[Rfam]
RNA sequence: GGGCCAGCUAUAGCCCAGCGGUUCCUUCGGCUGCUUGCAAUGGCUUUCGUUCCUCUGCCCCGGCAGGGGUUCGAUCCCGCGGGCACCCCUGGCCCACUU
Numbered sequence: 001g002g003g004c005c006a007g008c009u010a011u012a013g014c015c016c017a018g019c020g021g022u023u024c025c026u027u028c029g030g031c032u033g034c035u036u037g038c039a040a041u042g043g044c045u046u047u048c049g050u051u052c053c054u055c056u057g058c059c060c061c062g063g064c065a066g067g068g069g070u071u072c073g074a075u076c077c078c079g080c081g082g083g084c085a086c087c088c089c090u091g092g093c094c095c096a097c098u099u
Base pairs, nucleotide, nucleotide: 002094003093004092005091006090007089013084014083015082016081018080019079020078021077027074028073029072030071